[Rfam]
Shown here is a 77-nucleotide sequence from Alligator mississippiensis, a member of the family "Mammalian CPEB3 ribozyme". Its family is annotated with RNA nuclease activity in the Gene Ontology. The match comes from Rfam's covariance-model search (48 bits).
RNA sequence: GGUUGCAAGUUCGAAGCUAUAGCAGAAGCGUUCACAGCGCGGCCUGUCAGAUUCCAACCAAAUCUGAAAAUUCUACU
Numbered sequence: 001g002g003u004u005g006c007a008a009g010u011u012c013g014a015a016g017c018u019a020u021a022g023c024a025g026a027a028g029c030g031u032u033c034a035c036a037g038c039g040c041g042g043c044c045u046g047u048c049a050g051a052u053u054c055c056a057a058c059c060a061a062a063u064c065u066g067a068a069a070a071u072u073c074u075a076c077u
Base pairs, nucleotide, nucleotide: 013044016043017042018041021077022076024074025073026072027071028040029039030038048066049065050064051063052062053061